RNA sequence: UGGCACCCAACGUGGGGCGUGGACACGAGGAAAAUCAUGAGGGAAGAGGCGUGUGAUAGUUCAGCAGAACACAACAGAAAUCAGUUCAACAAAGAUUGCAGUGUGAACCUGCCACAUCUCUCUUAAAAGGUACAGUAAUGCCAAAUUAUGGGACAAGAUUUAAGUAAGCAUAAAGUUUUUGUUAAGCAAUUAAAAGAAGCCUUAAAGACAUGUGGAGUAAGGGUUAAAAGUAAUGAGCUUUUUAAGUUUUUUGAACUUAUCAAGGACACCUGCCCUU
Numbered sequence: 001u002g003g004c005a006c007c008c009a010a011c012g013u014g015g016g017g018c019g020u021g022g023a024c025a026c027g028a029g030g031a032a033a034a035u036c037a038u039g040a041g042g043g044a045a046g047a048g049g050c051g052u053g054u055g056a057u058a059g060u061u062c063a064g065c066a067g068a069a070c071a072c073a074a075c076a077g078a079a080a081u082c083a084g085u086u087c088a089a090c091a092a093a094g095a096u097u098g099c100a101g102u103g104u105g106a107a108c109c110u111g112c113c114a115c116a117u118c119u120c121u122c123u124u125a126a127a128a129g130g131u132a133c134a135g136u137a138a139u140g141c142c143a144a145a146u147u148a149u150g151g152g153a154c155a156a157g158a159u160u161u162a163a164g165u166a167a168g169c170a171u172a173a174a175g176u177u178u179u180u181g182u183u184a185a186g187c188a189a190u191u192a193a194a195a196g197a198a199g200c201c202u203u204a205a206a207g208a209c210a211u212g213u214g215g216a217g218u219a220a221g222g223g224u225u226a227a228a229a230g231u232a233a234u235g236a237g238c239u240u241u242u243u244a245a246g247u248u249u250u251u252u253g254a255a256c257u258u259a260u261c262a263a264g265g266a267c268a269c270c271u272g273c274c275c276u277u
Stems, first nucleotide, its partner, number of pairs: 007030002012026003035047002038044001081130002085126002093121003101115003136156001139153001141152002144149001161204003164200002211253002214250005221239002224236003262277004267272001
RNA: Mason-Pfizer monkey virus packaging signal
Organism: Sciurus carolinensis